[Rfam]
Annotation: Rfam assigns this 82-nucleotide RNA sequence from Brachypodium distachyon to the family "Small nucleolar RNA U54". A search with the family's covariance model found it, with a score of 68 bits. The family's consensus secondary structure was predicted with PFOLD. NCBI's taxonomy places the organism under Eukaryota, Magnoliopsida, Mesangiospermae, commelinids, Brachypodium. The family has 21 seed sequences and 614 matches in Rfam 15.1.

RNA sequence: UGCUUAAUGAUUUAGCCAUGCAGAUUCAUGGCAAUAUACGCUAUUCUGAGUCACUAGGAUGCCAUUAAACAUUAUGAGAGCA
Numbered sequence: 001u002g003c004u005u006a007a008u009g010a011u012u013u014a015g016c017c018a019u020g021c022a023g024a025u026u027c028a029u030g031g032c033a034a035u036a037u038a039c040g041c042u043a044u045u046c047u048g049a050g051u052c053a054c055u056a057g058g059a060u061g062c063c064a065u066u067a068a069a070c071a072u073u074a075u076g077a078g079a080g081c082a
Stems, first nucleotide, its partner, number of pairs: 001082005